[Rfam]
RNA: mir-8799 microRNA precursor family
Organism: Canis lupus
RNA sequence: GGGGGGAGGCUGGAUCCUGGGCUGUGUCCCGGGGCCUUGUGCUCCGGAGCCUGCGCUGUUGGAUUCGUGCUCCCGCCCCGCAGUCCCCU
Numbered sequence: 001g002g003g004g005g006g007a008g009g010c011u012g013g014a015u016c017c018u019g020g021g022c023u024g025u026g027u028c029c030c031g032g033g034g035c036c037u038u039g040u041g042c043u044c045c046g047g048a049g050c051c052u053g054c055g056c057u058g059u060u061g062g063a064u065u066c067g068u069g070c071u072c073c074c075g076c077c078c079c080g081c082a083g084u085c086c087c088c089u
Stems, first nucleotide, its partner, number of pairs: 001089006009081002012077002017075001019073003023069004027063003030058003034054002039051001041050003